[Rfam]
RNA sequence: ACAGAAACCUCAUCAAAAGCAUUGACUGGUUUGGUCUGCAGUAAGUGCUUUUUAUUGGGGUAUCUGUU
Numbered sequence: 001a002c003a004g005a006a007a008c009c010u011c012a013u014c015a016a017a018a019g020c021a022u023u024g025a026c027u028g029g030u031u032u033g034g035u036c037u038g039c040a041g042u043a044a045g046u047g048c049u050u051u052u053u054a055u056u057g058g059g060g061u062a063u064c065u066g067u068u
Base pairs, nucleotide, nucleotide: 004064005063007061008060009059010058011057015053016052017051018049019048020047021046022045023044025042026041027040